Shown here is a 114-nucleotide sequence from Denticeps clupeoides, a member of the family "Potassium channel RNA editing signal". Gene Ontology term of the family: adenosine to inosine editing. The base pairs follow the family's consensus structure, which is taken from published work. From the family's description: This family represents a group of sequences related to the human potassium channel Kv1.1 hairpin element which directs the efficient modification of an adenosine to inosine by an adenosine deaminase acting on RNA (ADAR). Rfam classes the family as a cis-regulatory element. Lineage of the source: Eukaryota > Eumetazoa > Craniata > Clupeiformes > Denticeps.

[Rfam]
RNA sequence: GUGGGUUAUGGUGACAUGGUACCUACCACCAUCGGAGGGAAAAUAGUCGGAUCCCUGUGUGCCAUUGCUGGAGUGCUGACCAUCGCCCUGCCGGUGCCUGUCAUCGUUUCCAAC
Numbered sequence: 001g002u003g004g005g006u007u008a009u010g011g012u013g014a015c016a017u018g019g020u021a022c023c024u025a026c027c028a029c030c031a032u033c034g035g036a037g038g039g040a041a042a043a044u045a046g047u048c049g050g051a052u053c054c055c056u057g058u059g060u061g062c063c064a065u066u067g068c069u070g071g072a073g074u075g076c077u078g079a080c081c082a083u084c085g086c087c088c089u090g091c092c093g094g095u096g097c098c099u100g101u102c103a104u105c106g107u108u109u110c111c112a113a114c
Stems, first nucleotide, its partner, number of pairs: 001114002004111002008107004013102004018097001021095002037077002040074001049063002